[Rfam]
RNA sequence: AACAUCCACUAGGGGCGCUGUAUGAUAGCUGAGAUGAUGCACAUUUAUUUGCUGCAUCGGUCCCUUUGAACCUGAAAUGGUUAGCACCAUCGUAGGAAAGUGGAGCGAGAACAUG
Numbered sequence: 001a002a003c004a005u006c007c008a009c010u011a012g013g014g015g016c017g018c019u020g021u022a023u024g025a026u027a028g029c030u031g032a033g034a035u036g037a038u039g040c041a042c043a044u045u046u047a048u049u050u051g052c053u054g055c056a057u058c059g060g061u062c063c064c065u066u067u068g069a070a071c072c073u074g075a076a077a078u079g080g081u082u083a084g085c086a087c088c089a090u091c092g093u094a095g096g097a098a099a100g101u102g103g104a105g106c107g108a109g110a111a112c113a114u115g
Stems, first nucleotide, its partner, number of pairs: 006103005011065004016059001017029005036058005071096004077090004
About this RNA
Rfam assigns this 115-nucleotide RNA sequence from Alteribacillus persepolensis to the family "TPP riboswitch aptamer (THI element)". It scores 77 bits against the family's covariance model. Pairs were carried over by alignment from the consensus structure, which is taken from published work.